The record is a 62-nucleotide RNA from Brunnivagina elsteri, which matches "Nitrogen stress-induced RNA 1" in Rfam. A search with the family's covariance model found it, with a score of 51 bits. The literature on the family includes a 2010 paper in J Mol Biol by Ionescu et al., "Heterocyst-specific transcription of NsiR1, a non-coding RNA encoded in a tandem array of direct repeats in cyanobacteria". Taxonomically the source falls in Brunnivagina elsteri (Bacteria, Bacillati, Cyanophyceae, Calotrichaceae). The family has 17 seed sequences and 962 matches in Rfam 15.1.
[Rfam]
RNA sequence: UGGUAGAUGCACCCUGAUAAUUCACUCCCCUCUUAGAAAUUUUCUAGUUGGGGAUUUUUUUU
Number, nucleotide and partner (000 for none) at each position: 001u000002g013003g012004u011005a000006g000007a000008u000009g000010c000011a004012c003013c002014c000015u000016g000017a000018u000019a000020a000021u000022u000023c000024a000025c000026u054027c053028c052029c051030c050031u000032c000033u047034u046035a045036g044037a043038a042039a000040u000041u000042u038043u037044c036045u035046a034047g033048u000049u000050g030051g029052g028053g027054a026055u000056u000057u000058u000059u000060u000061u000062u000